A member of the RNA family "c-di-GMP-I-GGC riboswitch aptamer" from Anoxynatronum buryatiense, 89 nucleotides long. Gene Ontology term of the family: cyclic-di-GMP binding. Lineage of the source: Bacteria > Bacillati > Bacillota > Eubacteriales > Anoxynatronum. The match comes from Rfam's covariance-model search (73 bits). The literature on the family includes a 2012 paper in Biochemistry by Smith et al., "Structural and biochemical characterization of linear dinucleotide analogues bound to the c-di-GMP-I aptamer".
RNA sequence: CAUGAAAAAGGCAAACCUGUCGGAAGGCAGGGACGCAAAAUCACGGGUCUUGCAAGUGAAGAAAAAACAAGACAGCCGGAUUGCCAUGA
Dot-bracket structure: ..((......((...((((((....))))))..[))..((((.(((((((((...............)))))).])))))))..))...